This 51-nucleotide sequence from Halopseudomonas pachastrellae belongs to the Rfam family "Xanthine riboswitch aptamer (NMT1 RNA)". The base pairs follow the family's consensus structure, which is taken from published work. Lineage of the source: Bacteria > Pseudomonadati > Gammaproteobacteria > Pseudomonadales > Halopseudomonas. The literature on the family includes a 2021 paper in Nucleic Acids Res by Xu et al., "Insights into xanthine riboswitch structure and metal ion-mediated ligand recognition". It scores 47 bits against the family's covariance model.

RNA sequence: AACGUGAGUAGAAGCUGUCAGGGGGCAACACCCCAGGUCAUUGCUCAGUAG
Number, nucleotide and partner (000 for none) at each position: 001a000002a000003c000004g000005u047006g046007a045008g044009u043010a042011g000012a000013a000014g000015c036016u000017g000018u000019c037020a000021g034022g033023g032024g031025g000026c000027a000028a000029c000030a000031c024032c023033c022034c021035a000036g015037g019038u000039c000040a000041u000042u010043g009044c008045u007046c006047a005048g000049u000050a000051g000